[Rfam]
RNA sequence: GAGGUAGCCCCGCGCUGCUGCUCGACCCCCGACCGUGCAGCAGUGUGGGGUUCUUUA
Numbered sequence: 001g002a003g004g005u006a007g008c009c010c011c012g013c014g015c016u017g018c019u020g021c022u023c024g025a026c027c028c029c030c031g032a033c034c035g036u037g038c039a040g041c042a043g044u045g046u047g048g049g050g051u052u053c054u055u056u057a
Base pairs, nucleotide, nucleotide: 002056003055004054007051008050009049010048011047012046013045014044015043016042017041018040019039020038021037
RNA: F6 TB sRNA